RNA sequence: AUCUAAAUACCUGUGUACCCUAGCAUGUGAGAUUGGGCACCUAAUUUCACAUGCUAGGGUACACAGGUAUUUAGAUG
Numbered sequence: 001a002u003c004u005a006a007a008u009a010c011c012u013g014u015g016u017a018c019c020c021u022a023g024c025a026u027g028u029g030a031g032a033u034u035g036g037g038c039a040c041c042u043a044a045u046u047u048c049a050c051a052u053g054c055u056a057g058g059g060u061a062c063a064c065a066g067g068u069a070u071u072u073a074g075a076u077g
Base pairs, nucleotide, nucleotide: 002075003074004073005072006071007070010067011066012065015062016061017060018059019058020057021056022055023054024053025052026051027050028049029048030047031046032045033044034043

Overview
This 77-nucleotide RNA sequence from Xenopus tropicalis belongs to the Rfam family "mir-10 microRNA precursor family". Lineage of the source: Eukaryota > Vertebrata > Sarcopterygii > Xenopodinae > Silurana. For this family Rfam cites "An extensive class of small RNAs in Caenorhabditis elegans" (Lee and Ambros, Science, 2001). Its family is annotated with RISC complex and miRNA-mediated post-transcriptional gene silencing in the Gene Ontology.